[Rfam]
RNA sequence: CUCACCCAGGGCUCCUGUAGCUCAGGGGGCAGGCCUGAGCCCUGCGUCUGACCCACGACCGUCCAGUCCCCCGACGGGGCACCUGGUCCUGAGGGGGAUCCGCCUUGAUCCCCACCGAAGCAGGGGAUCUGACCAACCUGGAGCUCAGCUGGAUGUUACAGGCGUGCAAA
Numbered sequence: 001c002u003c004a005c006c007c008a009g010g011g012c013u014c015c016u017g018u019a020g021c022u023c024a025g026g027g028g029g030c031a032g033g034c035c036u037g038a039g040c041c042c043u044g045c046g047u048c049u050g051a052c053c054c055a056c057g058a059c060c061g062u063c064c065a066g067u068c069c070c071c072c073g074a075c076g077g078g079g080c081a082c083c084u085g086g087u088c089c090u091g092a093g094g095g096g097g098a099u100c101c102g103c104c105u106u107g108a109u110c111c112c113c114a115c116c117g118a119a120g121c122a123g124g125g126g127a128u129c130u131g132a133c134c135a136a137c138c139u140g141g142a143g144c145u146c147a148g149c150u151g152g153a154u155g156u157u158a159c160a161g162g163c164g165u166g167c168a169a170a
Stems, first nucleotide, its partner, number of pairs: 008043007017034002020030004044165007060155006067098005075091006099142004105132002107129007143149002
Dot-bracket structure: .......(((((((..((.((((...))))..))..)))))))(((((((.........((((((.(((((...((((((.....))))))..)))))((((..(((((((((.........))))))).))......))))((...))))))))...))))))).....
A member of the RNA family "Spi-1 (PU.1) 5' UTR regulatory element", 170 nucleotides long.
Rfam's curators write: Spi-1 regulates myeloid gene expression during haemopoietic development.
Rfam classes the family as a cis-regulatory element.
The base pairs follow the family's consensus structure, which is taken from published work.
The literature on the family includes a 1997 paper in Nucleic Acids Res by Hensold et al., "The conserved 5'-untranslated leader of Spi-1 (PU.1) mRNA is highly structured and potently inhibits translation in vitro but not in vivo".
The sequence is in the family's curated seed alignment.